[Rfam]
A member of the RNA family "Small nucleolar RNA snoR74" from Turnera subulata, 129 nucleotides long. The family's RNA type in Rfam is H/ACA-box small nucleolar RNA. NCBI's taxonomy places the organism under Eukaryota, Streptophytina, Tracheophyta, Spermatophyta, Turnera. Pairs were carried over by alignment from the consensus structure, which was predicted with WAR. The match comes from Rfam's covariance-model search (88 bits). The literature on the family includes a 2002 paper in Curr Biol by Marker et al., "Experimental RNomics: identification of 140 candidates for small non-messenger RNAs in the plant Arabidopsis thaliana".

RNA sequence: AAAAAAGCAGUGCCUUGUUGUCUUCUGUGAACGUGGUGCUUGUCAACGUCAGGGAUAUUAAUUGCAUUGUUUUUGGGUGAACCUUUGUGUUUUUCAUUAACUAGAGGUUCAGUUAAUGAUGCCACAUCU
Numbered sequence: 001a002a003a004a005a006a007g008c009a010g011u012g013c014c015u016u017g018u019u020g021u022c023u024u025c026u027g028u029g030a031a032c033g034u035g036g037u038g039c040u041u042g043u044c045a046a047c048g049u050c051a052g053g054g055a056u057a058u059u060a061a062u063u064g065c066a067u068u069g070u071u072u073u074u075g076g077g078u079g080a081a082c083c084u085u086u087g088u089g090u091u092u093u094u095c096a097u098u099a100a101c102u103a104g105a106g107g108u109u110c111a112g113u114u115a116a117u118g119a120u121g122c123c124a125c126a127u128c129u
Base pairs, nucleotide, nucleotide: 005049007047011038012037014035016033017032065121066120067119068118069117070116071115078111079110080109081108082107083106084105